Rfam assigns this 53-nucleotide RNA from Camellia sinensis to the family "Plastid-ccsA-ndhD-2 3UTR RNA". Plastid ccsA-ndhD-2 is a non-coding RNA (ncRNA) recognised in plastids. It was found in the three prime untranslated region (3UTR) of ccsA and ndhD genes, its 3UTR location suggests a role in transcript maturation. NCBI's taxonomy places the organism under Eukaryota, Streptophyta, Gunneridae, Pentapetalae, Camellia. Rfam classes the family as a cis-regulatory element. On this family, see Zandueta-Criado and Bock, Nucleic Acids Res 2004: "Surprising features of plastid ndhD transcripts: addition of non-encoded nucleotides and polysome association of mRNAs with an unedited start codon". A search with the family's covariance model found it, with a score of 60 bits. The base pairs follow the family's consensus structure, which was predicted with LocARNA.
RNA sequence: UUUAUGAGAACCAUUUGAAUCAAGUAGUGUAGUGAUUCGCAUGAUUCUUGCCG
Dot-bracket structure: ....((((((.(((.(((((((..........))))))).))).))))))...